[Rfam]
Nucleotides: 154
Base pairs, nucleotide, nucleotide: 003152004151005150006149007148008147009146010145011144013142015140016139017138018137019136020135021134023132024131025130026129027128028127030125031124032123034121035120036119037118038117039116040115041114042113043112044111045110046109047108048107049106050105051104052103053102054101055100056099057098058097059096060095061094062093063092064091065090066089067088068087069082070081071080072079073078
Number, partner (000 for none) and nucleotide at each position: 001000c002000c003152c004151a005150c006149a007148c008147c009146c010145a011144u012000a013142u014000g015140u016139g017138u018137a019136g020135g021134a022000c023132u024131u025130c026129a027128a028127a029000u030125g031124a032123u033000c034121a035120c036119u037118a038117u039116u040115a041114a042113a043112u044111u045110u046109g047108g048107u049106a050105c051104a052103g053102a054101u055100u056099u057098u058097u059096g060095g061094a062093a063092a064091a065090g066089u067088u068087a069082u070081u071080a072079c073078a074000u075000g076000g077000g078073u079072g080071u081070g082069g083000a084000a085000c086000u087068u088067g089066a090065c091064u092063u093062u094061u095060c096059u097058a098057a099056a100055g101054a102053u103052c104051u105050g106049u107048g108047c109046u110045a111044a112043a113042u114041u115040u116039a117038a118037u119036a120035g121034u122000g123032a124031u125030c126000a127028u128027u129026u130025g131024g132023a133000a134021u135020c136019c137018u138017a139016c140015a141000c142013a143000c144011a145010u146009g147008g148007g149006u150005g151004u152003g153000a154000g
The family of this 154-nucleotide RNA sequence from Amborella trichopoda is "MIR8565 microRNA precursor family".
Rfam links the family to the GO terms miRNA-mediated post-transcriptional gene silencing and RISC complex.